[Rfam]
Shown here is a 274-nucleotide RNA from Hibiscus trionum, a member of the family "RNase MRP". A search with the family's covariance model found it, with a score of 84 bits. The literature on the family includes a 1993 paper in FASEB J by Schmitt et al., "Secondary structure of RNase MRP RNA as predicted by phylogenetic comparison". The family is grouped with related families in Rfam's "RNaseP clan". NCBI's taxonomy places the organism under Eukaryota, Streptophytina, Euphyllophyta, Malvales, Hibiscus. RNase MRP is an enzymatically active ribonucleoprotein with two distinct roles in eukaryotes. In mitochondria it plays a direct role in the initiation of mitochondrial DNA replication. In the nucleus it is involved in precursor rRNA processing, where it cleaves the internal transcribed spacer 1 between 18S and 5.8S rRNAs. The family has 66 seed sequences and 3,510 matches in Rfam 15.1.
Nucleotides: 274
Stems, first nucleotide, its partner, number of pairs: 002274010014229006021059007032052007063260003067257004082093004095108005120191010138176001140174001163170002231244004
Number, partner (000 for none) and nucleotide at each position: 001000c002274a003273a004272c005271u006270a007269c008268g009267a010266g011265a012000u013000g014229g015228a016227g017226u018225g019224a020000u021059u022058g023057g024056g025055u026054c027053a028000c029000a030000a031000c032052g033051a034050u035049u036048g037047u038046g039000u040000u041000a042000u043000u044000u045000g046038c047037g048036c049035g050034g051033u052032c053027u054026g055025a056024c057023c058022c059021a060000g061000g062000a063260a064259a065258g066000u067257c068256c069255c070254c071000g072000g073000g074000c075000c076000c077000a078000a079000a080000u081000c082093u083092g084091c085090a086000g087000a088000g089000a090085u091084g092083c093082a094000g095108a096107c097106c098105c099104g100000g101000a102000a103000u104099c105098g106097g107096g108095u109000a110000a111000u112000c113000u114000c115000c116000u117000u118000a119000u120191c121190g122189g123188u124187g125186a126185g127184g128183u129182c130000u131000g132000u133000u134000c135000u136000u137000u138176g139000c140174c141000c142000a143000a144000a145000a146000g147000c148000a149000g150000a151000g152000a153000c154000g155000g156000g157000g158000c159000u160000g161000a162000g163170a164169c165000a166000g167000g168000u169164g170163u171000g172000g173000a174140g175000c176138c177000u178000c179000a180000a181000u182129g183128g184127c185126c186125u187124u188123a189122u190121c191120g192000c193000u194000g195000g196000a197000g198000c199000u200000a201000a202000c203000u204000u205000g206000g207000c208000c209000g210000a211000u212000u213000c214000a215000c216000a217000c218000a219000g220000u221000u222000a223000u224019u225018c226017a227016c228015u229014u230000g231244g232243u233242c234241c235000c236000a237000a238000g239000c240000u241234g242233g243232a244231c245000u246000u247000a248000c249000u250000g251000a252000a253000c254070g255069g256068g257067g258065c259064u260063u261000a262000c263000u264000a265011u266010c267009u268008c269007g270006u271005a272004g273003u274002u